[Rfam]
RNA sequence: GGUCUGGGUGAUGAACUGGAAGAAGUUAUUGUUGAGAAAACGAAACAGACACUAGCUUCAAUAUCAUCAGGACCUAAGCAUACCCA
Numbered sequence: 001g002g003u004c005u006g007g008g009u010g011a012u013g014a015a016c017u018g019g020a021a022g023a024a025g026u027u028a029u030u031g032u033u034g035a036g037a038a039a040a041c042g043a044a045a046c047a048g049a050c051a052c053u054a055g056c057u058u059c060a061a062u063a064u065c066a067u068c069a070g071g072a073c074c075u076a077a078g079c080a081u082a083c084c085c086a
Base pairs, nucleotide, nucleotide: 001074002073004071005070007068008067009066010065011064022059023058025056026055027054028053030051031050032049033048
This 86-nucleotide RNA from Enterovirus betarhino belongs to the Rfam family "Human rhinovirus internal cis-acting regulatory element (CRE)". Rfam's curators put it in the seed alignment. The source organism's lineage runs through Viruses, Riboviria, Pisoniviricetes, Ensavirinae and Rhinovirus B. Rfam links the family to the GO term viral genome replication.